[Rfam]
RNA sequence: GUCGGGUUCGGGAUGAACCGGUUGACCCGCCCGCCGAUGAUGAUGUGCGUCCGCCUGCCCUCGGUGACGACCCGCACGCCCCGGUUCCUGAACCGGGG
Numbered sequence: 001g002u003c004g005g006g007u008u009c010g011g012g013a014u015g016a017a018c019c020g021g022u023u024g025a026c027c028c029g030c031c032c033g034c035c036g037a038u039g040a041u042g043a044u045g046u047g048c049g050u051c052c053g054c055c056u057g058c059c060c061u062c063g064g065u066g067a068c069g070a071c072c073c074g075c076a077c078g079c080c081c082c083g084g085u086u087c088c089u090g091a092a093c094c095g096g097g098g
Stems, first nucleotide, its partner, number of pairs: 008037004014033002018029001020027002044053002079098008
The family of this 98-nucleotide sequence from Parafrankia colletiae is "Mycobacterium sRNA Ms_AS-1". It scores 44 bits against the family's covariance model. Rfam classes the family as a small RNA.